Rhizobiales sRNA Atu_C8: a 121-nucleotide sequence from Notoacmeibacter marinus. Pairs were carried over by alignment from the consensus structure, which was predicted with CMfinder. On this family, see Wilms et al., RNA Biol 2012: "Deep sequencing uncovers numerous small RNAs on all four replicons of the plant pathogen Agrobacterium tumefaciens". The organism belongs to Notoacmeibacter, within Bacteria. The family's RNA type in Rfam is small RNA.
[Rfam]
RNA sequence: CAUGAUUUCUAUUCGUAUCGUACUCGUAGGACCGCGCAUGGGCAGGGUGGCGUAGCCGCCCGGCAUUUGCCACCCAUGCGCGGAAAAUCAGGCCCGAAAGGGCCUUUUUUAUUGCCUUCAC
Numbered sequence: 001c002a003u004g005a006u007u008u009c010u011a012u013u014c015g016u017a018u019c020g021u022a023c024u025c026g027u028a029g030g031a032c033c034g035c036g037c038a039u040g041g042g043c044a045g046g047g048u049g050g051c052g053u054a055g056c057c058g059c060c061c062g063g064c065a066u067u068u069g070c071c072a073c074c075c076a077u078g079c080g081c082g083g084a085a086a087a088u089c090a091g092g093c094c095c096g097a098a099a100g101g102g103c104c105u106u107u108u109u110u111a112u113u114g115c116c117u118u119c120a121c
Stems, first nucleotide, its partner, number of pairs: 007028001009026001029117002032114001033082010045061006063070002087106001090105006